This 55-nucleotide RNA sequence belongs to the Rfam family "Streptococcus sRNA SpF59 (ldcC RNA)". By type it is a small RNA. On this family, see Mann et al., PLoS Pathog 2012: "Control of virulence by small RNAs in Streptococcus pneumoniae". The family's consensus secondary structure was predicted with mfold.

RNA sequence: AGUCCACUAUAUAUAUAAUAGUUAAGCCCAUACGGACAGGCGGGACUGCUGCCGG
Numbered sequence: 001a002g003u004c005c006a007c008u009a010u011a012u013a014u015a016u017a018a019u020a021g022u023u024a025a026g027c028c029c030a031u032a033c034g035g036a037c038a039g040g041c042g043g044g045a046c047u048g049c050u051g052c053c054g055g
Stems, first nucleotide, its partner, number of pairs: 001047005006022005
Dot-bracket structure: ((((((((((.......)))))....................)))))........